[Rfam]
RNA sequence: GGCUUCAUAGCUCAGUGGUUAGAGCACUGGUCUUGUAAACCAGGGGUCGUGAGCUCAAUCCUCACUGGAGCCU
Numbered sequence: 001g002g003c004u005u006c007a008u009a010g011c012u013c014a015g016u017g018g019u020u021a022g023a024g025c026a027c028u029g030g031u032c033u034u035g036u037a038a039a040c041c042a043g044g045g046g047u048c049g050u051g052a053g054c055u056c057a058a059u060c061c062u063c064a065c066u067g068g069a070g071c072c073u
Base pairs, nucleotide, nucleotide: 001072002071003070004069005068006067007066010025011024012023013022027043028042029041030040031039049065050064051063052062053061

The record is a 73-nucleotide RNA from Ameiurus melas, which matches "tRNA" in Rfam. It is annotated as a transfer RNA. Lineage of the source: Eukaryota > Vertebrata > Teleostomi > Neopterygii > Ameiurus.